[Rfam]
RNA sequence: GAUUGCUUGUUUCGGUUUAGAAUUCCUACGCUUUACCGUAUAUGAGACUGGCAAAGCGUUUGGAUUCUGAAUCGAACCCGGC
Numbered sequence: 001g002a003u004u005g006c007u008u009g010u011u012u013c014g015g016u017u018u019a020g021a022a023u024u025c026c027u028a029c030g031c032u033u034u035a036c037c038g039u040a041u042a043u044g045a046g047a048c049u050g051g052c053a054a055a056g057c058g059u060u061u062g063g064a065u066u067c068u069g070a071a072u073c074g075a076a077c078c079c080g081g082c
Base pairs, nucleotide, nucleotide: 010076011075012074014073015072016071017070018069019068020067021066023064024063025062028059029058030057031056032055033054034053036051037050

Notes
mir-927 microRNA precursor family: an 82-nucleotide sequence from Asbolus verrucosus. On this family, see Stark et al., Genome Res 2007: "Systematic discovery and characterization of fly microRNAs using 12 Drosophila genomes". Rfam links the family to the GO terms RISC complex and miRNA-mediated post-transcriptional gene silencing. NCBI's taxonomy places the organism under Eukaryota, Panarthropoda, Allotriocarida, Pimeliinae, Asbolus.